Rfam assigns this 155-nucleotide RNA sequence from Qiania dongpingensis to the family "glmS glucosamine-6-phosphate activated ribozyme aptamer". The base pairs follow the family's consensus structure, which is taken from published work. The family's RNA type in Rfam is riboswitch.
[Rfam]
RNA sequence: UCAUAGAAAAAAGCGCCAUGCCCCUCUGAUUUAUGAGGGUGACGAGGAGAAGAGAUUAUCGAAAAUUCGGCGGGUACUCUUCCAUGUUCCCUGUGCGUGCACAUAUUGGCAAAUAUGCCGGUGACGGCAAAACAAAUCCAAUAUGAUCAGGGAUU
Numbered sequence: 001u002c003a004u005a006g007a008a009a010a011a012a013g014c015g016c017c018a019u020g021c022c023c024c025u026c027u028g029a030u031u032u033a034u035g036a037g038g039g040u041g042a043c044g045a046g047g048a049g050a051a052g053a054g055a056u057u058a059u060c061g062a063a064a065a066u067u068c069g070g071c072g073g074g075u076a077c078u079c080u081u082c083c084a085u086g087u088u089c090c091c092u093g094u095g096c097g098u099g100c101a102c103a104u105a106u107u108g109g110c111a112a113a114u115a116u117g118c119c120g121g122u123g124a125c126g127g128c129a130a131a132a133c134a135a136a137u138c139c140a141a142u143a144u145g146a147u148c149a150g151g152g153a154u155u
Stems, first nucleotide, its partner, number of pairs: 020040004051081002054078001059070004083099005102145007116129005